[Rfam]
RNA sequence: UGGACCCGCGAGGGGUCUGCCGGGGAUCGCCAGCGGUGCUGCCACCGCUCUCCUUCAGUGGAUCGGCCCCCGGAGGCCCCUCGCGGGUUCA
Numbered sequence: 001u002g003g004a005c006c007c008g009c010g011a012g013g014g015g016u017c018u019g020c021c022g023g024g025g026a027u028c029g030c031c032a033g034c035g036g037u038g039c040u041g042c043c044a045c046c047g048c049u050c051u052c053c054u055u056c057a058g059u060g061g062a063u064c065g066g067c068c069c070c071c072g073g074a075g076g077c078c079c080c081u082c083g084c085g086g087g088u089u090c091a
Stems, first nucleotide, its partner, number of pairs: 001091018020073006029067003033048006051062003